[Rfam]
RNA: c-di-AMP riboswitch aptamer (ydaO/yuaA leader)
RNA sequence: GUAAGCCUAACGCCUAAUUCUUAUAAGCUUUAUAAGAUGCGGGGGAUCCACUCUGGGUGAAUUGAACUCUGAAUGAUGCAAAACAUUCAGUAGCUUCAUAGGGAACCUUCAACCGAACCCUUCAGCUAACCUCGUCGGCAUAUUUGGAAGGAGAC
Numbered sequence: 001g002u003a004a005g006c007c008u009a010a011c012g013c014c015u016a017a018u019u020c021u022u023a024u025a026a027g028c029u030u031u032a033u034a035a036g037a038u039g040c041g042g043g044g045g046a047u048c049c050a051c052u053c054u055g056g057g058u059g060a061a062u063u064g065a066a067c068u069c070u071g072a073a074u075g076a077u078g079c080a081a082a083a084c085a086u087u088c089a090g091u092a093g094c095u096u097c098a099u100a101g102g103g104a105a106c107c108u109u110c111a112a113c114c115g116a117a118c119c120c121u122u123c124a125g126c127u128a129a130c131c132u133c134g135u136c137g138g139c140a141u142a143u144u145u146g147g148a149a150g151g152a153g154a155c
Stems, first nucleotide, its partner, number of pairs: 012139003019037008039135006055120003063098004101114002